[Rfam]
RNA sequence: AAAGCGGGUCAGACAAUCGCUGCUUCCCGGCAUGCUGAUCAACGGAGAUGUUUGACAGCGCCGGGCGUAGAGGAAAGUCCGGACUCCAUAGGACAGGGUGAUGGCUAACGGCCAUCCGCGGCAACGCGCGGAACAGGGCAACAGAAAGUAAACCGCCGAUGGCCGGAUAUUUGCUUCGGCUCAGGCAAGGGUGAAACGGUGCGGUAAGCGCGCACCGCGACUGCGGUAACGCAGUUGGCACGGUAACCUCCACCUGGAGCAAUUCCAAACAGCGGGCGCGCAUCGUUUGCGAUGCAGGCGUGGUCCGCGUCGCCUGCGGGUAGGAAGCUUGAGCGCGCCAGCAAUGGCGCGCCCAGACGAAUGAUUGUCACGCGCAGUUUUUGCUGCGCGCACAGAAUCCGGCUUAUCGGCCCGCUUUGCAC
Numbered sequence: 001a002a003a004g005c006g007g008g009u010c011a012g013a014c015a016a017u018c019g020c021u022g023c024u025u026c027c028c029g030g031c032a033u034g035c036u037g038a039u040c041a042a043c044g045g046a047g048a049u050g051u052u053u054g055a056c057a058g059c060g061c062c063g064g065g066c067g068u069a070g071a072g073g074a075a076a077g078u079c080c081g082g083a084c085u086c087c088a089u090a091g092g093a094c095a096g097g098g099u100g101a102u103g104g105c106u107a108a109c110g111g112c113c114a115u116c117c118g119c120g121g122c123a124a125c126g127c128g129c130g131g132a133a134c135a136g137g138g139c140a141a142c143a144g145a146a147a148g149u150a151a152a153c154c155g156c157c158g159a160u161g162g163c164c165g166g167a168u169a170u171u172u173g174c175u176u177c178g179g180c181u182c183a184g185g186c187a188a189g190g191g192u193g194a195a196a197c198g199g200u201g202c203g204g205u206a207a208g209c210g211c212g213c214a215c216c217g218c219g220a221c222u223g224c225g226g227u228a229a230c231g232c233a234g235u236u237g238g239c240a241c242g243g244u245a246a247c248c249u250c251c252a253c254c255u256g257g258a259g260c261a262a263u264u265c266c267a268a269a270c271a272g273c274g275g276g277c278g279c280g281c282a283u284c285g286u287u288u289g290c291g292a293u294g295c296a297g298g299c300g301u302g303g304u305c306c307g308c309g310u311c312g313c314c315u316g317c318g319g320g321u322a323g324g325a326a327g328c329u330u331g332a333g334c335g336c337g338c339c340a341g342c343a344a345u346g347g348c349g350c351g352c353c354c355a356g357a358c359g360a361a362u363g364a365u366u367g368u369c370a371c372g373c374g375c376a377g378u379u380u381u382u383g384c385u386g387c388g389c390g391c392a393c394a395g396a397a398u399c400c401g402g403c404u405u406a407u408c409g410g411c412c413c414g415c416u417u418u419g420c421a422c
Stems, first nucleotide, its partner, number of pairs: 001418010011407001012369007020070004025065003075405003079402005084259004091306004096255005101115005116130001117128004131250002136248002138244002153190002155186003161180001163178001198216006217239001218237008263326004272317006297311005333352008
This 422-nucleotide sequence from Candidatus Glomeribacter gigasporarum belongs to the Rfam family "Bacterial RNase P class A". A search with the family's covariance model found it, with a score of 299 bits. From the family's description: Ribonuclease P (RNase P) is a ubiquitous endoribonuclease, found in archaea, bacteria and eukarya as well as chloroplasts and mitochondria. By type it is a ribozyme.